[Rfam]
Annotation:
Shown here is a 269-nucleotide sequence from Paenibacillus spiritus, a member of the family "Bacterial large signal recognition particle RNA". The match comes from Rfam's covariance-model search (192 bits). Lineage of the source: Bacteria > Bacillati > Bacilli > Caryophanales > Paenibacillus. The family's RNA type in Rfam is non-coding RNA gene.

RNA sequence: CCGUGCUAGACGGGGAGGUAGCGGUGCCCUGUAACUCGCAAUCCGCUAUAGCGGGGUUGAAUUCCUGUUUAGAGGUACUGUCGAUGUGAGGUCUGGUCCCUGGUUGCUGUGUUGACGGUUGGGUCCUUCGCAAUGAGCGCUUGUGAACCUGGUCAGGUCCGGAAGGAAGCAGCCAUAAGCAGGUUGUCUCUUGUGCCGAAGGGCGGCCUAGCCCGAGCAGUCAAUCAGGAUUGCCGCUUGGAUCGCGGUUAUCGAUGACAGGUGCACGG
Numbered sequence: 001c002c003g004u005g006c007u008a009g010a011c012g013g014g015g016a017g018g019u020a021g022c023g024g025u026g027c028c029c030u031g032u033a034a035c036u037c038g039c040a041a042u043c044c045g046c047u048a049u050a051g052c053g054g055g056g057u058u059g060a061a062u063u064c065c066u067g068u069u070u071a072g073a074g075g076u077a078c079u080g081u082c083g084a085u086g087u088g089a090g091g092u093c094u095g096g097u098c099c100c101u102g103g104u105u106g107c108u109g110u111g112u113u114g115a116c117g118g119u120u121g122g123g124u125c126c127u128u129c130g131c132a133a134u135g136a137g138c139g140c141u142u143g144u145g146a147a148c149c150u151g152g153u154c155a156g157g158u159c160c161g162g163a164a165g166g167a168a169g170c171a172g173c174c175a176u177a178a179g180c181a182g183g184u185u186g187u188c189u190c191u192u193g194u195g196c197c198g199a200a201g202g203g204c205g206g207c208c209u210a211g212c213c214c215g216a217g218c219a220g221u222c223a224a225u226c227a228g229g230a231u232u233g234c235c236g237c238u239u240g241g242a243u244c245g246c247g248g249u250u251a252u253c254g255a256u257g258a259c260a261g262g263u264g265c266a267c268g269g
Stems, first nucleotide, its partner, number of pairs: 001269006009058003012030004017025001019023001035055005064262006074253004082245004087240004094233002099229005106222001108219003117213008125202006131193002135190003139184006150175004158167003